[Rfam]
RNA sequence: GACCUCUUCAUCAGCAAUUUAAUCAAUUUUCAAAAAUUACCGUAUUUUUAAAACAGACAAGAACGAGAGGUCUG
Numbered sequence: 001g002a003c004c005u006c007u008u009c010a011u012c013a014g015c016a017a018u019u020u021a022a023u024c025a026a027u028u029u030u031c032a033a034a035a036a037u038u039a040c041c042g043u044a045u046u047u048u049u050a051a052a053a054c055a056g057a058c059a060a061g062a063a064c065g066a067g068a069g070g071u072c073u074g
Stems, first nucleotide, its partner, number of pairs: 001072008
This 74-nucleotide sequence from Tieghemostelium lacteum belongs to the Rfam family "Class I RNA from Dictyostelium". Rfam classes the family as a non-coding RNA gene. Rfam's curators write: Dictyostelium Class I RNA was first reported for Aspegren et al. 2004 in Dictyostelium discoideum. Sucgang et al. 2011 identify putative homologs of Class I RNA in D. discoideum and D. purpureum. Avesson et al. 2011 report that Class I RNA present a down regulation during the development of social amoeba Dictyostelium discoideum, they also found that deletion of one of the Class I RNAs, DdR-21, results in aberrant development. Kjellin et al. 2020 report an extended number of expressed Class I RNA genes in class Dictyostelia, in their analysis they remark that Class I RNA appear to be unique to dictyostelid social amoebas, and they hypothesise that Class I RNAs were involved in evolution of multicellularity in Dictyostelia.